[Rfam]
RNA sequence: UUUCCCCUGCGGUGUUCGUUAGGGUCGUAGAUUCCUUGGACCAAUGUCUACGCGACAUGGUCGCCGACCGCUAACCCGCUGUUGUGAGCGCCCUUCACGGGUGCACCUGAUGCGGCAGGAACGCGACCGCCCUGAACCCAGGUUCAGGAUGCCGGCUCGACGGCACUGGCGGGGGAUCC
Numbered sequence: 001u002u003u004c005c006c007c008u009g010c011g012g013u014g015u016u017c018g019u020u021a022g023g024g025u026c027g028u029a030g031a032u033u034c035c036u037u038g039g040a041c042c043a044a045u046g047u048c049u050a051c052g053c054g055a056c057a058u059g060g061u062c063g064c065c066g067a068c069c070g071c072u073a074a075c076c077c078g079c080u081g082u083u084g085u086g087a088g089c090g091c092c093c094u095u096c097a098c099g100g101g102u103g104c105a106c107c108u109g110a111u112g113c114g115g116c117a118g119g120a121a122c123g124c125g126a127c128c129g130c131c132c133u134g135a136a137c138c139c140a141g142g143u144u145c146a147g148g149a150u151g152c153c154g155g156c157u158c159g160a161c162g163g164c165a166c167u168g169g170c171g172g173g174g175g176a177u178c179c
Base pairs, nucleotide, nucleotide: 003176004175005174006173007172008171009170010169012166013165014164015163017162018161019160033149034148035147037146038145039144040143041142042141059128060127061126063124064123068119076115077114078113079112084106085105089103090102091101092100093099
Source information: 6S / SsrS RNA: a 179-nucleotide sequence from Niveibacterium umoris. Rfam describes the family as follows. E. coli 6S RNA was the first non coding RNA to be sequenced, but its function was unknown until recently. It consists of 184 nucleotides that fold into an extended hairpin structure with a large single-stranded internal bulge. The 6S RNA specifically associates with RNA polymerase holoenzyme containing the sigma70 specificity factor. The literature on the family includes a 2000 paper in Cell by Wassarman and Storz, "6S RNA regulates E. coli RNA polymerase activity". Rfam 15.1 lists 5,006 matches to the family in 4,638 species. By type it is a non-coding RNA gene.